DnaX ribosomal frameshifting element: a 65-nucleotide sequence from Cedecea neteri. This family represents a ribosomal frameshifting element found in the mRNA of the dnaX gene in E. coli. The family's consensus secondary structure is taken from published work. It is annotated as a frameshift element. Rfam links the family to the GO term translational frameshifting. Taxonomically the source falls in Cedecea (Bacteria, Pseudomonadati, Pseudomonadota, Enterobacterales).
RNA sequence: AUCAGGAGACUGACAAAGCAAAAAAGAAUGAGCCGGCAGCGCAACGACUAGCGCGGCCGGCAAAA
Numbered sequence: 001a002u003c004a005g006g007a008g009a010c011u012g013a014c015a016a017a018g019c020a021a022a023a024a025a026g027a028a029u030g031a032g033c034c035g036g037c038a039g040c041g042c043a044a045c046g047a048c049u050a051g052c053g054c055g056g057c058c059g060g061c062a063a064a065a
Base pairs, nucleotide, nucleotide: 032061033060034059035058036057037056039054040053043049